The family of this 251-nucleotide RNA from Alligator mississippiensis is "Small nucleolar RNA SNORD17". For this family Rfam cites "RNomics: an experimental approach that identifies 201 candidates for novel, small, non-messenger RNAs in mouse" (Huttenhofer et al., EMBO J, 2001). By type it is a C/D-box small nucleolar RNA. Gene Ontology terms of the family: RNA processing and nucleolus. The snoRNA HBI-43 belongs to the C/D family of snoRNAs, guiding 2'O-ribose methylation at position U3797 of the 28S rRNA. Pseudouridylation in position U3797 is predicted to be guided by the H/ACA snoRNA ACA48. A search with the family's covariance model found it, with a score of 100 bits. The source organism's lineage runs through Eukaryota, Bilateria, Vertebrata, Sauria and Alligator.
[Rfam]
RNA sequence: GUGAAGUCAUGAUGAAGUUUAUCCAUUCUCUGAGUGCCUCUGCACUGCCCCCCGCAACAUCCAGGUCCCUGUUCUAGAGGCUUUGUGCUGUGCAGCCUCCAGAUUCCCCCCCAGUCUCUCAGUGGUCUACUGGGGGCUAUUCGCAUGUCUGGAUGGCUGCCUGCAGGAGUGAAAUAGCCAGCAGAGCUGGAGCCUCUUUCUUUGGGGGGGGGGCUCCAUCUCGGCCAAGAUGAGGGAUGCUGUCUGAUCAC
Number, nucleotide and partner (000 for none) at each position: 001g000002u000003g000004a000005a000006g000007u000008c000009a000010u250011g249012a248013u247014g000015a000016a000017g243018u242019u000020u000021a000022u000023c236024c235025a000026u234027u233028c232029u000030c229031u228032g000033a000034g225035u224036g000037c000038c000039u000040c181041u180042g179043c177044a000045c000046u174047g000048c000049c171050c169051c000052c167053c166054g000055c163056a162057a000058c000059a000060u087061c000062c085063a084064g083065g081066u080067c079068c000069c077070u076071g000072u000073u000074c000075u000076a070077g069078a000079g067080g066081c065082u000083u064084u063085g062086u000087g060088c000089u000090g000091u000092g160093c159094a158095g157096c156097c155098u000099c000100c000101a000102g000103a000104u000105u000106c000107c143108c000109c000110c000111c000112c000113a138114g137115u136116c135117u000118c134119u133120c132121a131122g130123u129124g128125g000126u000127c000128u124129a123130c122131u121132g120133g119134g118135g116136g115137c114138u113139a000140u000141u000142c000143g107144c000145a000146u000147g000148u000149c000150u000151g000152g000153a000154u000155g097156g096157c095158u094159g093160c092161c000162u056163g055164c000165a000166g053167g052168a000169g050170u000171g049172a000173a000174a046175u000176a000177g043178c000179c042180a041181g040182c000183a000184g222185a221186g220187c000188u218189g217190g216191a215192g000193c213194c212195u211196c210197u209198u208199u207200c206201u000202u000203u000204g000205g000206g200207g199208g198209g197210g196211g195212g194213g193214c000215u191216c190217c189218a188219u000220c186221u185222c184223g000224g035225c034226c000227a000228a031229g030230a000231u000232g028233a027234g026235g024236g023237a000238u000239g000240c000241u000242g018243u017244c000245u000246g000247a013248u012249c011250a010251c000